[Rfam]
RNA sequence: UCUAGCGCCUGGCGCCCGACCCCCAGCCACAUCGAACGCACCCUGACGCACUUCCCCGGUGUCAGGUGGCGUGUGGAUGGGGAUCCGGCGCCAGGGGCGAAAGCUC
Numbered sequence: 001u002c003u004a005g006c007g008c009c010u011g012g013c014g015c016c017c018g019a020c021c022c023c024c025a026g027c028c029a030c031a032u033c034g035a036a037c038g039c040a041c042c043c044u045g046a047c048g049c050a051c052u053u054c055c056c057c058g059g060u061g062u063c064a065g066g067u068g069g070c071g072u073g074u075g076g077a078u079g080g081g082g083a084u085c086c087g088g089c090g091c092c093a094g095g096g097g098c099g100a101a102a103g104c105u106c
Stems, first nucleotide, its partner, number of pairs: 010093007018085002021082005027076004037071003042066008
RNA: mraW RNA